[Rfam]
Shown here is a 419-nucleotide RNA from Propithecus coquereli, a member of the family "Small Cajal body-specific RNA 2". Its family is annotated with RNA processing and nucleolus in the Gene Ontology. It scores 421 bits against the family's covariance model. The source organism's lineage runs through Eukaryota, Bilateria, Euarchontoglires, Strepsirrhini and Propithecus. The family's RNA type in Rfam is small Cajal body RNA.
RNA sequence: GCCUACGGGAGGGAGAGCGGCCUGGGGCGAGGUUGUGUGUGCGGUGCUGUGGCGGCGCGUGGAAGGCGCGUGUGGGCCGAGUGUGAGUGGAUGCGCGAGCGUGUGCGUGCGCGCGUGGGGCGUGCUAGGCGAGUGUGUGCGCCCGCCCCUGCGCCCCUCCCCCCGCCUACACCUUGAUCUUAUUUGAUCGGGUAGUGGCCCCAGCCCCGCCGGGCAGACCCGAAAUGAAAAGCUCUCCUCCUGCGAAGCCCCCUCUUCGGGGCGCUGUGCAGCGAGGCCUCUUGGGCGGCGGCAACGCCGUGGUCUCCGAGGUCCCGGAGCGGGUCCUGCGGGGCCGGCGCUCAGAAGUGAUGAAUUGAUCAGAUAGACGAGGCCGGGCUUGUCCCGGGCCGCUGAUUAUCGAGGCGAUUCUGAUCUGA
Numbered sequence: 001g002c003c004u005a006c007g008g009g010a011g012g013g014a015g016a017g018c019g020g021c022c023u024g025g026g027g028c029g030a031g032g033u034u035g036u037g038u039g040u041g042c043g044g045u046g047c048u049g050u051g052g053c054g055g056c057g058c059g060u061g062g063a064a065g066g067c068g069c070g071u072g073u074g075g076g077c078c079g080a081g082u083g084u085g086a087g088u089g090g091a092u093g094c095g096c097g098a099g100c101g102u103g104u105g106c107g108u109g110c111g112c113g114c115g116u117g118g119g120g121c122g123u124g125c126u127a128g129g130c131g132a133g134u135g136u137g138u139g140c141g142c143c144c145g146c147c148c149c150u151g152c153g154c155c156c157c158u159c160c161c162c163c164c165g166c167c168u169a170c171a172c173c174u175u176g177a178u179c180u181u182a183u184u185u186g187a188u189c190g191g192g193u194a195g196u197g198g199c200c201c202c203a204g205c206c207c208c209g210c211c212g213g214g215c216a217g218a219c220c221c222g223a224a225a226u227g228a229a230a231a232g233c234u235c236u237c238c239u240c241c242u243g244c245g246a247a248g249c250c251c252c253c254u255c256u257u258c259g260g261g262g263c264g265c266u267g268u269g270c271a272g273c274g275a276g277g278c279c280u281c282u283u284g285g286g287c288g289g290c291g292g293c294a295a296c297g298c299c300g301u302g303g304u305c306u307c308c309g310a311g312g313u314c315c316c317g318g319a320g321c322g323g324g325u326c327c328u329g330c331g332g333g334g335c336c337g338g339c340g341c342u343c344a345g346a347a348g349u350g351a352u353g354a355a356u357u358g359a360u361c362a363g364a365u366a367g368a369c370g371a372g373g374c375c376g377g378g379c380u381u382g383u384c385c386c387g388g389g390c391c392g393c394u395g396a397u398u399a400u401c402g403a404g405g406c407g408a409u410u411c412u413g414a415u416c417u418g419a
Base pairs, nucleotide, nucleotide: 051155052154053153054152056072057071058070059069060068061067089104091102092101093100094099105142106141107140110137111136112135113134114133116131117130183231184230185229188223189222190221191220193218197215200214201213202212204210205209255312256311257310258309259308260307261306262305264304265303266302269301270300272298273297274296277293278292279291280289281288320339321338323336324335325334326333327332343418344417345416346415353411354410355409356408357407358406372391373390374389375388377386378385